[Rfam]
RNA sequence: CAUAUCUCCAUAGGAGUGACACUCAGAACACAUAUUGAUGGAAUUGCACAUACUUUUCUUAGUGAGCACUUGUCUUCCAUCUGUAUGUGUUCUCAGGUCACCCCUCUGGAGCGCCA
Numbered sequence: 001c002a003u004a005u006c007u008c009c010a011u012a013g014g015a016g017u018g019a020c021a022c023u024c025a026g027a028a029c030a031c032a033u034a035u036u037g038a039u040g041g042a043a044u045u046g047c048a049c050a051u052a053c054u055u056u057u058c059u060u061a062g063u064g065a066g067c068a069c070u071u072g073u074c075u076u077c078c079a080u081c082u083g084u085a086u087g088u089g090u091u092c093u094c095a096g097g098u099c100a101c102c103c104c105u106c107u108g109g110a111g112c113g114c115c116a
Stems, first nucleotide, its partner, number of pairs: 007110002012105003016101004025093011

Shown here is a 116-nucleotide RNA from Artemisia annua, a member of the family "MIR398 microRNA precursor family". On this family, see Jones-Rhoades and Bartel, Mol Cell 2004: "Computational identification of plant microRNAs and their targets, including a stress-induced miRNA".